[Rfam]
RNA sequence: UGACGGACUUCUGGAGAGAUCUUGAAACGGCUUAUGCUGUAGACAAGACACCGAAGGGGCAAGGGAUAAGACCCGAAACUCUCAGGUAAAAGGACAGAAAGCAUUGA
Numbered sequence: 001u002g003a004c005g006g007a008c009u010u011c012u013g014g015a016g017a018g019a020u021c022u023u024g025a026a027a028c029g030g031c032u033u034a035u036g037c038u039g040u041a042g043a044c045a046a047g048a049c050a051c052c053g054a055a056g057g058g059g060c061a062a063g064g065g066a067u068a069a070g071a072c073c074c075g076a077a078a079c080u081c082u083c084a085g086g087u088a089a090a091a092g093g094a095c096a097g098a099a100a101g102c103a104u105u106g107a
Base pairs, nucleotide, nucleotide: 006102009099010098011097012096013095020048021047022046023045050087051086052085053083054082057081058080059079063074064073

Overview:
The record is a 107-nucleotide RNA sequence from Streptococcus thermophilus, which matches "Glycine riboswitch aptamer" in Rfam. The organism belongs to Streptococcus thermophilus, within Bacteria. Gene Ontology term of the family: glycine biosynthetic process.